[Rfam]
About this RNA:
Small nucleolar RNA SNORD69: a 76-nucleotide sequence from Menura novaehollandiae. The organism belongs to Menura, within Eukaryota. Rfam links the family to the GO terms RNA processing and nucleolus. For this family Rfam cites "RNomics: an experimental approach that identifies 201 candidates for novel, small, non-messenger RNAs in mouse" (Huttenhofer et al., EMBO J, 2001). snoRNA HBII-210 belongs to the C/D family of snoRNAs. It is the human orthologue of the mouse MBII-210 and is predicted to guide the 2'O-ribose methylation of large 28S rRNA on residue G4464. It is annotated as a C/D-box small nucleolar RNA.
RNA sequence: UACACAAAGCAUAUGAUGACAAAACACUGAAACUGACUGUAUGAAGUACAUUCGGUCCAACGCUGAGCUUUCUGUC
Numbered sequence: 001u002a003c004a005c006a007a008a009g010c011a012u013a014u015g016a017u018g019a020c021a022a023a024a025c026a027c028u029g030a031a032a033c034u035g036a037c038u039g040u041a042u043g044a045a046g047u048a049c050a051u052u053c054g055g056u057c058c059a060a061c062g063c064u065g066a067g068c069u070u071u072c073u074g075u076c
Base pairs, nucleotide, nucleotide: 002075003074004073006071007070008069009068010067